[Rfam]
RNA: Small nucleolar RNA SNORD103/SNORD85
Organism: Chlorocebus sabaeus
RNA sequence: ACUGGCAAGGAUGAUAUACAUUUGCCCUCACUUAGACUAUAGUUCACUGAUGAGUGCAUUGUUCUUAGCCAGU
Numbered sequence: 001a002c003u004g005g006c007a008a009g010g011a012u013g014a015u016a017u018a019c020a021u022u023u024g025c026c027c028u029c030a031c032u033u034a035g036a037c038u039a040u041a042g043u044u045c046a047c048u049g050a051u052g053a054g055u056g057c058a059u060u061g062u063u064c065u066u067a068g069c070c071a072g073u
Base pairs, nucleotide, nucleotide: 001073002072003071004070005069006068